RNA sequence: UUUCGUCUAUAAGUAGUGGUGCCGCAGGUAAUAGAAAUUAUGAUAAUAAAUUACCUGUCAGCCCUCUGCUUAGAGUCGAUU
Numbered sequence: 001u002u003u004c005g006u007c008u009a010u011a012a013g014u015a016g017u018g019g020u021g022c023c024g025c026a027g028g029u030a031a032u033a034g035a036a037a038u039u040a041u042g043a044u045a046a047u048a049a050a051u052u053a054c055c056u057g058u059c060a061g062c063c064c065u066c067u068g069c070u071u072a073g074a075g076u077c078g079a080u081u
Base pairs, nucleotide, nucleotide: 003079004078005077007075010072011071012070013069014068015067016066018064019063024058025057026056027055028054029053030052031051032050

The record is an 81-nucleotide RNA sequence from Caenorhabditis angaria, which matches "mir-252 microRNA precursor family" in Rfam. NCBI's taxonomy places the organism under Eukaryota, Chromadorea, Rhabditida, Rhabditomorpha, Caenorhabditis. On this family, see Li et al., BMC Genomics 2009: "Direct sequencing and expression analysis of a large number of miRNAs in Aedes aegypti and a multi-species survey of novel mosquito miRNAs".